[Rfam]
RNA: Small nucleolar RNA SNORA13
RNA sequence: GGCCUUUGUGUUGCCCAUUCACUUUCGGAAACUUGGGAAAGUGGUGUCAAAAAAGCAUAAAUUACAUGCUUUUGCAGCCAUUUUUGCCCUUGAAUUUUGGUUUCUUUGGCGGAGGCACUGCAUAAGAAACAGUU
Numbered sequence: 001g002g003c004c005u006u007u008g009u010g011u012u013g014c015c016c017a018u019u020c021a022c023u024u025u026c027g028g029a030a031a032c033u034u035g036g037g038a039a040a041g042u043g044g045u046g047u048c049a050a051a052a053a054a055g056c057a058u059a060a061a062u063u064a065c066a067u068g069c070u071u072u073u074g075c076a077g078c079c080a081u082u083u084u085u086g087c088c089c090u091u092g093a094a095u096u097u098u099g100g101u102u103u104c105u106u107u108g109g110c111g112g113a114g115g116c117a118c119u120g121c122a123u124a125a126g127a128a129a130c131a132g133u134u
Stems, first nucleotide, its partner, number of pairs: 002056001004055004009049002012046004016041001018039003022035001069126003072122001074121004084115002087112002089109002094103001